[Rfam]
RNA sequence: ACAUGCCGGGAUCGCCACCUGCCAGCGCGUUGCGCCCGCAGGUGCCGUUCUG
Numbered sequence: 001a002c003a004u005g006c007c008g009g010g011a012u013c014g015c016c017a018c019c020u021g022c023c024a025g026c027g028c029g030u031u032g033c034g035c036c037c038g039c040a041g042g043u044g045c046c047g048u049u050c051u052g
Stems, first nucleotide, its partner, number of pairs: 016044007025035004
RNA: ffh sRNA